[Rfam]
The family of this 115-nucleotide RNA sequence from Trifolium medium is "MIR2593 microRNA precursor family". Lineage of the source: Eukaryota > Embryophyta > Magnoliopsida > Pentapetalae > Trifolium. Rfam 15.1 lists 1,262 matches to the family in 6 species. It scores 102 bits against the family's covariance model. Gene Ontology terms of the family: RISC complex and miRNA-mediated post-transcriptional gene silencing.
RNA sequence: CUAUAAGCAAAAAUGUACUUUUUAGAUUCAUUGUAUAUUUAAUGUAUCUGGUCUAUAUUAUGAACCAGAUACAUUAAAUAUACAAUGAAUCUAAAAAAUACAUUUUUGCUUAUAA
Numbered sequence: 001c002u003a004u005a006a007g008c009a010a011a012a013a014u015g016u017a018c019u020u021u022u023u024a025g026a027u028u029c030a031u032u033g034u035a036u037a038u039u040u041a042a043u044g045u046a047u048c049u050g051g052u053c054u055a056u057a058u059u060a061u062g063a064a065c066c067a068g069a070u071a072c073a074u075u076a077a078a079u080a081u082a083c084a085a086u087g088a089a090u091c092u093a094a095a096a097a098a099u100a101c102a103u104u105u106u107u108g109c110u111u112a113u114a115a
Stems, first nucleotide, its partner, number of pairs: 002114006009107005015101003019097007027089018049067004